[Rfam]
RNA sequence: AGUUGCGUGGUAAGCACAAAGCGAACUAUUCUUUCGAUUUUUACUAAAGAAUACCGUGUGCUCGACACAUCAAGCAGCGUACUGCUAUUUUUGAGCCAUGGAUAUUUUUUAAUUUGC
Numbered sequence: 001a002g003u004u005g006c007g008u009g010g011u012a013a014g015c016a017c018a019a020a021g022c023g024a025a026c027u028a029u030u031c032u033u034u035c036g037a038u039u040u041u042u043a044c045u046a047a048a049g050a051a052u053a054c055c056g057u058g059u060g061c062u063c064g065a066c067a068c069a070u071c072a073a074g075c076a077g078c079g080u081a082c083u084g085c086u087a088u089u090u091u092u093g094a095g096c097c098a099u100g101g102a103u104a105u106u107u108u109u110u111a112a113u114u115u116g117c
Stems, first nucleotide, its partner, number of pairs: 003077004008067002011064001013062006027053008095117001099116005
The family of this 117-nucleotide RNA sequence from Panicum miliaceum is "U5 spliceosomal RNA". About the family: U5 RNA is a component of both types of known spliceosome. Pairs were carried over by alignment from the consensus structure, which is taken from published work. Taxonomically the source falls in Panicum sect. Panicum (Eukaryota, Viridiplantae, Petrosaviidae, Panicum).